[Rfam]
RNA sequence: UGGCUGUGAUGACAACAAGAUUACUUCUUCAUACCUUAAUUUCAGUUAAGGACCAAACCUGAUGACUUUAUUUGUGCGUGUCUGAGCCGG
Numbered sequence: 001u002g003g004c005u006g007u008g009a010u011g012a013c014a015a016c017a018a019g020a021u022u023a024c025u026u027c028u029u030c031a032u033a034c035c036u037u038a039a040u041u042u043c044a045g046u047u048a049a050g051g052a053c054c055a056a057a058c059c060u061g062a063u064g065a066c067u068u069u070a071u072u073u074g075u076g077c078g079u080g081u082c083u084g085a086g087c088c089g090g
Base pairs, nucleotide, nucleotide: 001089002088003087004086
RNA: small nucleolar RNA snoR126
Organism: Triticum aestivum